Rfam assigns this 53-nucleotide RNA from Scophthalmus maximus to the family "UnaL2 LINE 3' element". Its family is annotated with transposition, RNA-mediated in the Gene Ontology. Rfam 15.1 lists 493,311 matches to the family in 99 species. It scores 55 bits against the family's covariance model. Pairs were carried over by alignment from the consensus structure, which is taken from published work. Lineage of the source: Eukaryota > Eumetazoa > Acanthomorphata > Percomorphaceae > Scophthalmus.
[Rfam]
RNA sequence: AAUGCGCUUAUUGUAAGUCGCUUUGGACAAAAGCGUCUGCUAAAUGAAUGUAA
Numbered sequence: 001a002a003u004g005c006g007c008u009u010a011u012u013g014u015a016a017g018u019c020g021c022u023u024u025g026g027a028c029a030a031a032a033g034c035g036u037c038u039g040c041u042a043a044a045u046g047a048a049u050g051u052a053a
Stems, first nucleotide, its partner, number of pairs: 012042001013040003019035006